[Rfam]
RNA sequence: GAUGCUUCAUGACGGGACGGACUGAAACGUCUUGUGGAUGCCGGUCUCUCCCCGAUGUUUCUGCAGC
Numbered sequence: 001g002a003u004g005c006u007u008c009a010u011g012a013c014g015g016g017a018c019g020g021a022c023u024g025a026a027a028c029g030u031c032u033u034g035u036g037g038a039u040g041c042c043g044g045u046c047u048c049u050c051c052c053c054g055a056u057g058u059u060u061c062u063g064c065a066g067c
Stems, first nucleotide, its partner, number of pairs: 001067001003065003014052004019047005029039003